RNA sequence: AGGGCAGGCCUUUCAGGCAUCCUCUCCUAAAACUUUCCGGCCGGUCCCUGCGGGGGUCGGCCAUUUUUUUGCCCGUC
Numbered sequence: 001a002g003g004g005c006a007g008g009c010c011u012u013u014c015a016g017g018c019a020u021c022c023u024c025u026c027c028u029a030a031a032a033c034u035u036u037c038c039g040g041c042c043g044g045u046c047c048c049u050g051c052g053g054g055g056g057u058c059g060g061c062c063a064u065u066u067u068u069u070u071g072c073c074c075g076u077c
Base pairs, nucleotide, nucleotide: 008018009017010016011015039062040061041060042059043058044057045056046055047054
This 77-nucleotide RNA from Sphingomonas sp. Leaf33 belongs to the Rfam family "Makes More Granules Regulator RNA (mmgR)". Rfam classes the family as a small RNA. A reference for the family is Ceizel Borella et al. (2018), "Expression of the small regulatory RNA gene mmgR is regulated negatively by AniA and positively by NtrC in Sinorhizobium meliloti 2011", Microbiology. Rfam's curators write: SuhB later renamed mmgR (makes more granules regulator) was a putative non-coding RNA found multiple times in the Agrobacterium tumefaciens genome and related alpha-proteobacteria. NCBI's taxonomy places the organism under Bacteria, Alphaproteobacteria, Sphingomonadales, Sphingomonadaceae, Sphingomonas.